[Rfam]
Nucleotides: 087
Base pairs, nucleotide, nucleotide: 001030002029003028004027005026006025007024008023009022010021011020064084065083066082067081068080069079070078071077072076
Number, partner (000 for none) and nucleotide at each position: 001030a002029u003028c004027a005026a006025a007024u008023a009022a010021a011020a012000a013000c014000u015000c016000c017000u018000a019000a020011u021010u022009u023008u024007a025006u026005u027004u028003g029002a030001u031000a032000g033000u034000a035000u036000c037000c038000u039000a040000a041000u042000c043000u044000u045000u046000u047000u048000c049000a050000u051000a052000a053000u054000a055000a056000u057000c058000u059000c060000c061000c062000c063000a064084a065083a066082a067081g068080u069079c070078a071077c072076c073000a074000u075000c076072g077071g078070u079069g080068g081067c082066u083065u084064u085000u086000u087000u
This 87-nucleotide RNA sequence from Streptococcus sp. 2_1_36FAA belongs to the Rfam family "Cia-dependent small RNA csRNA1".